[Rfam]
The record is a 62-nucleotide RNA from Papaver somniferum, which matches "Small nucleolar RNA U49" in Rfam.
The source organism's lineage runs through Eukaryota, Magnoliopsida, Mesangiospermae, Papaveroideae and Papaver.
It scores 49 bits against the family's covariance model.
On this family, see Brown et al., RNA 2001: "Multiple snoRNA gene clusters from Arabidopsis".
RNA sequence: UCCCAAUGAGGAAGCGAACCCAAAAGAUAGUGCCGUAUGACACUCUUAAACGCAGCAGUUUG
Numbered sequence: 001u002c003c004c005a006a007u008g009a010g011g012a013a014g015c016g017a018a019c020c021c022a023a024a025a026g027a028u029a030g031u032g033c034c035g036u037a038u039g040a041c042a043c044u045c046u047u048a049a050a051c052g053c054a055g056c057a058g059u060u061u062g
Stems, first nucleotide, its partner, number of pairs: 014056002027046001029044004
Clan: SNORD49 clan.